[Rfam]
RNA sequence: CUUACAGAGUUUAUUGGCAUUCUGUCCACCUCCUAUCUUUAGAAAUUAGAAUAUCUCUUUCAUAUGGAGGUGGGCAUACUGCCAACCGAGCUCUGUUGG
Numbered sequence: 001c002u003u004a005c006a007g008a009g010u011u012u013a014u015u016g017g018c019a020u021u022c023u024g025u026c027c028a029c030c031u032c033c034u035a036u037c038u039u040u041a042g043a044a045a046u047u048a049g050a051a052u053a054u055c056u057c058u059u060u061c062a063u064a065u066g067g068a069g070g071u072g073g074g075c076a077u078a079c080u081g082c083c084a085a086c087c088g089a090g091c092u093c094u095g096u097u098g099g
Stems, first nucleotide, its partner, number of pairs: 011089001014085006023076011
Description: Rfam assigns this 99-nucleotide RNA sequence from Populus trichocarpa to the family "MIR394 microRNA precursor family". A reference for the family is Jones-Rhoades and Bartel (2004), "Computational identification of plant microRNAs and their targets, including a stress-induced miRNA", Mol Cell. The sequence is in the family's curated seed alignment. The base pairs follow the family's consensus structure, which was predicted with WAR. Rfam 15.1 lists 724 matches to the family in 216 species. Its family is annotated with miRNA-mediated post-transcriptional gene silencing and RISC complex in the Gene Ontology.